[Rfam]
RNA sequence: UCCGGUCCUCGGUAGUGGCUUCCGGAACCUCGCGUUCCGGGGACCACGGUCGAAGACCGUC
Numbered sequence: 001u002c003c004g005g006u007c008c009u010c011g012g013u014a015g016u017g018g019c020u021u022c023c024g025g026a027a028c029c030u031c032g033c034g035u036u037c038c039g040g041g042g043a044c045c046a047c048g049g050u051c052g053a054a055g056a057c058c059g060u061c
Base pairs, nucleotide, nucleotide: 003059004058005057006056007055009053010052011051012050013049017045018044020042021041022040023039024038025037026036027035028034